[Rfam]
tRNA: a 73-nucleotide RNA sequence from Brunnivagina elsteri.
Pairs were carried over by alignment from the consensus structure, which is taken from published work.
Rfam's curators write: Transfer RNA (tRNA) molecules are approximately 80 nucleotides in length. Their secondary structure includes four short double-helical elements and three loops (D, anti-codon, and T loops). Further hydrogen bonds mediate the characteristic L-shaped molecular structure. tRNAs have two regions of fundamental functional importance: the anti-codon, which is responsible for specific mRNA codon recognition, and the 3' end, to which the tRNAs corresponding amino acid is attached (by aminoacyl-tRNA synthetases). tRNAs cope with the degeneracy of the genetic code in two manners: having more than one tRNA (with a specific anti-codon) for a particular amino acid; and 'wobble' base-pairing, i.e. permitting non-standard base-pairing at the 3rd anti-codon position.

RNA sequence: GGGCGUGUAGCUCAGUGGAUAGAGCGUCAGGUUCCGGUCCUGUAGGUCGGGGGUUCGAGUCCCUCCACGCUCA
Dot-bracket structure: (((((((..((((........))))..((((.......))))......(((((.......)))))))))))).
Numbered sequence: 001g002g003g004c005g006u007g008u009a010g011c012u013c014a015g016u017g018g019a020u021a022g023a024g025c026g027u028c029a030g031g032u033u034c035c036g037g038u039c040c041u042g043u044a045g046g047u048c049g050g051g052g053g054u055u056c057g058a059g060u061c062c063c064u065c066c067a068c069g070c071u072c073a
Stems, first nucleotide, its partner, number of pairs: 001072007010025004028042004049065005